[Rfam]
RNA: ZMP/ZTP riboswitch aptamer (pfl RNA motif)
Organism: Dermatophilaceae bacterium
RNA sequence: GGGACACACGACUGGCGCAGGUGGGGAACCACCAGGGAGUGAACGGUCGGAGCAUCGCCCGCCUGGGUGUUCCGG
Numbered sequence: 001g002g003g004a005c006a007c008a009c010g011a012c013u014g015g016c017g018c019a020g021g022u023g024g025g026g027a028a029c030c031a032c033c034a035g036g037g038a039g040u041g042a043a044c045g046g047u048c049g050g051a052g053c054a055u056c057g058c059c060c061g062c063c064u065g066g067g068u069g070u071u072c073c074g075g
Base pairs, nucleotide, nucleotide: 002044007041008040009039012036013035014063015062016061017060021032022031023030024029052070053069054068055067056066